[Rfam]
RNA sequence: GGUUUCUAUUGGUGUAAAUCCGAUUUAAGAUGAGAAAAAUUUCCCAUUGGUAGCGAAGUUAUCCAUUAAGCGGGAAAUCUUAU
Numbered sequence: 001g002g003u004u005u006c007u008a009u010u011g012g013u014g015u016a017a018a019u020c021c022g023a024u025u026u027a028a029g030a031u032g033a034g035a036a037a038a039a040u041u042u043c044c045c046a047u048u049g050g051u052a053g054c055g056a057a058g059u060u061a062u063c064c065a066u067u068a069a070g071c072g073g074g075a076a077a078u079c080u081u082a083u
Stems, first nucleotide, its partner, number of pairs: 010022003044073002046066002049063006
Plastid-rps12 3UTR RNA: an 83-nucleotide sequence from Seguieria aculeata. Pairs were carried over by alignment from the consensus structure, which was predicted with LocARNA. About the family: Plastid rpl20 is a non-coding RNA (ncRNA) recognised in plastids. It was found in the three prime untranslated region (3UTR) of rps12 gene, its 3UTR location sugest a role in transcript maduration. On this family, see Richter et al., Plant Commun 2023: "Retrograde signaling in plants: A critical review focusing on the GUN pathway and beyond". It is annotated as a cis-regulatory element. It is one of the family's seed sequences.